[Rfam]
Notes
The family of this 129-nucleotide sequence from Brassica oleracea is "MIR9555 microRNA precursor family". Pairs were carried over by alignment from the consensus structure, which was predicted with RNAalifold. A search with the family's covariance model found it, with a score of 135 bits.

RNA sequence: UUAUAUAGACGUAUAUAAUUGUGGGGUUCUAAGCUUUACGGGAAAUCCAACCGAAAGAUUUUUAAAUAAGAAACUUUCGAUUGGGUUUCCCGUAAAGCUUAGAACCCACAAUUACAUACGCCUAUAUAA
Numbered sequence: 001u002u003a004u005a006u007a008g009a010c011g012u013a014u015a016u017a018a019u020u021g022u023g024g025g026g027u028u029c030u031a032a033g034c035u036u037u038a039c040g041g042g043a044a045a046u047c048c049a050a051c052c053g054a055a056a057g058a059u060u061u062u063u064a065a066a067u068a069a070g071a072a073a074c075u076u077u078c079g080a081u082u083g084g085g086u087u088u089c090c091c092g093u094a095a096a097g098c099u100u101a102g103a104a105c106c107c108a109c110a111a112u113u114a115c116a117u118a119c120g121c122c123u124a125u126a127u128a129a
Base pairs, nucleotide, nucleotide: 001129002128003127004126005125006124007123008122010120011119012118013117014116016114017113018112019111020110021109022108023107024106025105027104028103029102030101031100032099033098034097035096036095037094038093039092040091041090070089071088072087073086074085075084076083